This 65-nucleotide sequence from Bacillus sp. J14TS2 belongs to the Rfam family "Bacillaceae-1 RNA". Taxonomically the source falls in Bacillus (Bacteria, Bacillati, Bacillota, Bacilli). Pairs were carried over by alignment from the consensus structure, which is taken from published work.
RNA sequence: AAUAAAGAUCCUUCGACUAAGUUCCGACACGUCCUGUGUCGAACGUCGAAGUCAGCACUUUUAGC
Numbered sequence: 001a002a003u004a005a006a007g008a009u010c011c012u013u014c015g016a017c018u019a020a021g022u023u024c025c026g027a028c029a030c031g032u033c034c035u036g037u038g039u040c041g042a043a044c045g046u047c048g049a050a051g052u053c054a055g056c057a058c059u060u061u062u063a064g065c
Base pairs, nucleotide, nucleotide: 011051012050013049014048015047016046017045026040027039028038029037030036058064